[Rfam]
RNA sequence: ACACUGGAAGGAGGUGGUUCGACGAAUGAGUAUUCAAAGGACACGUGAGGUGGCUGUCAGCUGAGCGCCACCGCUGCCACGGGCAACCGUUAGCGCGAAGCGCCCGGCGAAUCCAAGGCAGCCACCCGGCCCCCGAGUCCCCGGCCAGUCCGACCGGGACCGCGCGAGAAAUCCGCGGAACGACUCGGGGGUCGUUCCUU
Numbered sequence: 001a002c003a004c005u006g007g008a009a010g011g012a013g014g015u016g017g018u019u020c021g022a023c024g025a026a027u028g029a030g031u032a033u034u035c036a037a038a039g040g041a042c043a044c045g046u047g048a049g050g051u052g053g054c055u056g057u058c059a060g061c062u063g064a065g066c067g068c069c070a071c072c073g074c075u076g077c078c079a080c081g082g083g084c085a086a087c088c089g090u091u092a093g094c095g096c097g098a099a100g101c102g103c104c105c106g107g108c109g110a111a112u113c114c115a116a117g118g119c120a121g122c123c124a125c126c127c128g129g130c131c132c133c134c135g136a137g138u139c140c141c142c143g144g145c146c147a148g149u150c151c152g153a154c155c156g157g158g159a160c161c162g163c164g165c166g167a168g169a170a171a172u173c174c175g176c177g178g179a180a181c182g183a184c185u186c187g188g189g190g191g192u193c194g195u196u197c198c199u200u
Stems, first nucleotide, its partner, number of pairs: 013058006060108004065103001067101002072095003127194013140158005
RNA: Actinobacteria sRNA Ms_IGR-5
Organism: Nocardia macrotermitis